This 68-nucleotide sequence from Nocardia camponoti belongs to the Rfam family "Actino-pnp RNA". The family's consensus secondary structure is taken from published work.
[Rfam]
RNA sequence: GUCGGUCUUCGGUAGUGGCCUGGCGGCGGCGAGUUGUGCUCGCCGCCCGGCUUCAAUCGACGGCCGCC
Numbered sequence: 001g002u003c004g005g006u007c008u009u010c011g012g013u014a015g016u017g018g019c020c021u022g023g024c025g026g027c028g029g030c031g032a033g034u035u036g037u038g039c040u041c042g043c044c045g046c047c048c049g050g051c052u053u054c055a056a057u058c059g060a061c062g063g064c065c066g067c068c
Base pairs, nucleotide, nucleotide: 001068003066004065005064006063007062009060010059011058012057013056017052018051019050022047023046024045025044026043027042028041029040